Notes
The family of this 261-nucleotide sequence from Sporolactobacillus inulinus is "BsrG". The family has 6 seed sequences and 614 matches in Rfam 15.1. The match comes from Rfam's covariance-model search (79 bits). A reference for the family is Saito et al. (2008), "Novel small RNA-encoding genes in the intergenic regions of Bacillus subtilis", Gene. Rfam links the family to the GO terms toxin activity and autolysis. About the family: bsrE, bsrG and bsrH pair through intermolecular interactions with antisense sRNAs. The organism belongs to Sporolactobacillus, within Bacteria. The base pairs follow the family's consensus structure, which was predicted with WAR.
RNA sequence: GCAAUAGAUGAUGCAUAUGAGCGGAUGCGGUGACACCCUUGUGAAAGGGGGUACGGCCAAUGACAGUAUUUCAAGCGAUGACACUUAUGAUUAGCUUUGGAGUGCUUAUCUUGAUGCUGUCAGACAGAAAAAAUAAUCCGCCUCAUAUGCUACUCACGAUAGCUUGAUGGACGGACCAUUUGUUAAAAUGUGAAGUUAAUUACUUGCAUCGCUCCGCUCUACGCGGAUAUUGUCAUCCCGUCAGUGUUCACAGCACUGGCG
Numbered sequence: 001g002c003a004a005u006a007g008a009u010g011a012u013g014c015a016u017a018u019g020a021g022c023g024g025a026u027g028c029g030g031u032g033a034c035a036c037c038c039u040u041g042u043g044a045a046a047g048g049g050g051g052u053a054c055g056g057c058c059a060a061u062g063a064c065a066g067u068a069u070u071u072c073a074a075g076c077g078a079u080g081a082c083a084c085u086u087a088u089g090a091u092u093a094g095c096u097u098u099g100g101a102g103u104g105c106u107u108a109u110c111u112u113g114a115u116g117c118u119g120u121c122a123g124a125c126a127g128a129a130a131a132a133a134u135a136a137u138c139c140g141c142c143u144c145a146u147a148u149g150c151u152a153c154u155c156a157c158g159a160u161a162g163c164u165u166g167a168u169g170g171a172c173g174g175a176c177c178a179u180u181u182g183u184u185a186a187a188a189u190g191u192g193a194a195g196u197u198a199a200u201u202a203c204u205u206g207c208a209u210c211g212c213u214c215c216g217c218u219c220u221a222c223g224c225g226g227a228u229a230u231u232g233u234c235a236u237c238c239c240g241u242c243a244g245u246g247u248u249c250a251c252a253g254c255a256c257u258g259g260c261g
Base pairs, nucleotide, nucleotide: 001233002232003231004230005229009211010210011209012208013207014149015148016147017146018145019144020143021142023138024137026135030054031053032052034051036049037048038047062121063120064119065118066117067116068115076089077088100112101111102110213227214226215225216224239261240260241259242258243257244256245255246254247253248252